Rfam assigns this 85-nucleotide RNA from Desulfosporosinus sp. Sb-LF to the family "c-di-GMP-I-GGC riboswitch aptamer".
The family's consensus secondary structure is taken from published work.
The organism belongs to Desulfosporosinus, within Bacteria.
The family is grouped with related families in Rfam's "c-di-GMP_I riboswitch clan".
RNA sequence: CUUGAUAAGGGCAAACUCAGUAAAAGCUGAGGACGCAAAGCUACGGGUCUUCCACGAUAGGGUGAUGAUAGCCGGGAUACCAAUU
Numbered sequence: 001c002u003u004g005a006u007a008a009g010g011g012c013a014a015a016c017u018c019a020g021u022a023a024a025a026g027c028u029g030a031g032g033a034c035g036c037a038a039a040g041c042u043a044c045g046g047g048u049c050u051u052c053c054a055c056g057a058u059a060g061g062g063u064g065a066u067g068a069u070a071g072c073c074g075g076g077a078u079a080c081c082a083a084u085u
Stems, first nucleotide, its partner, number of pairs: 003082002011036002016031006034071001039078001041076002044074003047069003
It scores 61 bits against the family's covariance model.